[Rfam]
RNA sequence: AUUCAUACCUUGCAGGGGAAAUGCCAUGUCAUAAAAGUGGUUUUCCCGGGGGGAGGCUCAUCCAUUGCAAUUCUGAUGCUGAUCCUUAUGAUUUCCCCAAAUGUGGGGAACUCAACUGCAUAGUUUGUGUUAAUGGGGGAUUGCUGUUGUGAUUUCCCUGG
Numbered sequence: 001a002u003u004c005a006u007a008c009c010u011u012g013c014a015g016g017g018g019a020a021a022u023g024c025c026a027u028g029u030c031a032u033a034a035a036a037g038u039g040g041u042u043u044u045c046c047c048g049g050g051g052g053g054a055g056g057c058u059c060a061u062c063c064a065u066u067g068c069a070a071u072u073c074u075g076a077u078g079c080u081g082a083u084c085c086u087u088a089u090g091a092u093u094u095c096c097c098c099a100a101a102u103g104u105g106g107g108g109a110a111c112u113c114a115a116c117u118g119c120a121u122a123g124u125u126u127g128u129g130u131u132a133a134u135g136g137g138g139g140a141u142u143g144c145u146g147u148u149g150u151g152a153u154u155u156c157c158c159u160g161g
Stems, first nucleotide, its partner, number of pairs: 012119004016047006023041005048087004053083001055080003061076002089114003092110003096106002134160005140155001144151001
Dot-bracket structure: ...........((((((((((.(((((.........)))))))))))((((.(.(((...((............)).)))..))))).((((((.((.......)).))).))).))))..............(((((.(...(......)...)))))).
RNA: U1 spliceosomal RNA
Organism: Pogona vitticeps